Record summary: A member of the RNA family "Gammaproteobacterial sRNA STnc100" from Escherichia coli, 206 nucleotides long. The family's consensus secondary structure was predicted with CMfinder. It is annotated as a small RNA.
[Rfam]
RNA sequence: UCAGACUGAGUAUUUGUUAAAAGAAACUGGCAUGGUGAAUCCCCCUGUGCGGAGGGGCAUAUCAGCGACAGGUGGUUGGUUAUAUCCCUUAUCUGGUGCGGGUUCAGGUGCUGAUACUGAACUCACCGGGAGGCACCCGGCAUCAUGCUGUAUACAGAGAUUAGGCAUAUAUCCAGGCUCCUCAUCGCAGGAGCCUUUUUACAUGC
Numbered sequence: 001u002c003a004g005a006c007u008g009a010g011u012a013u014u015u016g017u018u019a020a021a022a023g024a025a026a027c028u029g030g031c032a033u034g035g036u037g038a039a040u041c042c043c044c045c046u047g048u049g050c051g052g053a054g055g056g057g058c059a060u061a062u063c064a065g066c067g068a069c070a071g072g073u074g075g076u077u078g079g080u081u082a083u084a085u086c087c088c089u090u091a092u093c094u095g096g097u098g099c100g101g102g103u104u105c106a107g108g109u110g111c112u113g114a115u116a117c118u119g120a121a122c123u124c125a126c127c128g129g130g131a132g133g134c135a136c137c138c139g140g141c142a143u144c145a146u147g148c149u150g151u152a153u154a155c156a157g158a159g160a161u162u163a164g165g166c167a168u169a170u171a172u173c174c175a176g177g178c179u180c181c182u183c184a185u186c187g188c189a190g191g192a193g194c195c196u197u198u199u200u201a202c203a204u205g206c
Stems, first nucleotide, its partner, number of pairs: 014157003030148008042057005065090001067088001094098001100124004105119003126140005165206004175196008